Rfam assigns this 164-nucleotide RNA from Nonomuraea endophytica to the family "c-di-AMP riboswitch aptamer (ydaO/yuaA leader)". The literature on the family includes a 2004 paper in Proc Natl Acad Sci U S A by Barrick et al., "New RNA motifs suggest an expanded scope for riboswitches in bacterial genetic control". A search with the family's covariance model found it, with a score of 83 bits.
[Rfam]
RNA sequence: GCCAGCGACCUGCCGAGUCCGUGCAGCCAGGAGGCACGGAGCCGGGGAACCACCGAUCCCAUUCCCCCGGGAUCAAGGGGUGAAUCGGCGCGUUCAGCGUGCCGUAGGGCGACUUCCAGGCCCGAAUCCGUCAGCUAACCCGGUAGGCGUUCGUGGAAGAACCA
Numbered sequence: 001g002c003c004a005g006c007g008a009c010c011u012g013c014c015g016a017g018u019c020c021g022u023g024c025a026g027c028c029a030g031g032a033g034g035c036a037c038g039g040a041g042c043c044g045g046g047g048a049a050c051c052a053c054c055g056a057u058c059c060c061a062u063u064c065c066c067c068c069g070g071g072a073u074c075a076a077g078g079g080g081u082g083a084a085u086c087g088g089c090g091c092g093u094u095c096a097g098c099g100u101g102c103c104g105u106a107g108g109g110c111g112a113c114u115u116c117c118a119g120g121c122c123c124g125a126a127u128c129c130g131u132c133a134g135c136u137a138a139c140c141c142g143g144u145a146g147g148c149g150u151u152c153g154u155g156g157a158a159g160a161a162c163c164a
Stems, first nucleotide, its partner, number of pairs: 011149004018040007041144006051077001078129003086104004107123004